[Rfam]
RNA sequence: GGAAACUUGAGAAAGGCUGUCCCUAGUACGAGAGGACCGGGAUGGACGAACCUCUGGUGUGCCAGUUGUACCGCCAGGUGCAUGGCUGGUUGGCUACGUUCGGAAGUGAUAACCGCUGAACGCAUCUAAGCGGGAAGCACGUUUCAAGAUGAGGUUUCCCACCCCUUGUGGGUUAAGGCCCCCAACAGAUUAUUGGGUUGAUAGGCCGGAGGUGUACAGCAGUAAUGCCCAGCCGACCGGUACUAAUAGGCCGAAG
Numbered sequence: 001g002g003a004a005a006c007u008u009g010a011g012a013a014a015g016g017c018u019g020u021c022c023c024u025a026g027u028a029c030g031a032g033a034g035g036a037c038c039g040g041g042a043u044g045g046a047c048g049a050a051c052c053u054c055u056g057g058u059g060u061g062c063c064a065g066u067u068g069u070a071c072c073g074c075c076a077g078g079u080g081c082a083u084g085g086c087u088g089g090u091u092g093g094c095u096a097c098g099u100u101c102g103g104a105a106g107u108g109a110u111a112a113c114c115g116c117u118g119a120a121c122g123c124a125u126c127u128a129a130g131c132g133g134g135a136a137g138c139a140c141g142u143u144u145c146a147a148g149a150u151g152a153g154g155u156u157u158c159c160c161a162c163c164c165c166u167u168g169u170g171g172g173u174u175a176a177g178g179c180c181c182c183c184a185a186c187a188g189a190u191u192a193u194u195g196g197g198u199u200g201a202u203a204g205g206c207c208g209g210a211g212g213u214g215u216a217c218a219g220c221a222g223u224a225a226u227g228c229c230c231a232g233c234c235g236a237c238c239g240g241u242a243c244u245a246a247u248a249g250g251c252c253g254a255a256g
Stems, first nucleotide, its partner, number of pairs: 001159008011145004017045007047102005055096003062089005067082006106140003113133005162172003174254001177252004181197005202245003205241005211234002219228003
The record is a 256-nucleotide part of an RNA from Nocardioides sp. Root79, which matches "Bacterial large subunit ribosomal RNA" in Rfam. The organism belongs to Nocardioides, within Bacteria.